MIR1520 microRNA precursor family: a 120-nucleotide RNA sequence from Glycine max. Pairs were carried over by alignment from the consensus structure, which was predicted with RNAalifold. Its Rfam clan is "MIR1520 microRNA precursor clan".
RNA sequence: UUUUUAUUGAAUGAUGACUGUCACUUGUCAUGUUCUGAUUGGAUGUCAACUCCAUGAAAGAUGAAAUGCAUUGUUGUUUUCAUUAACCAAUCAGAACAUAACACGUGACAGUCAUCAUCC
Dot-bracket structure: ...................((((..(...((.((((.(((................................................))).)))).))...)..))))...........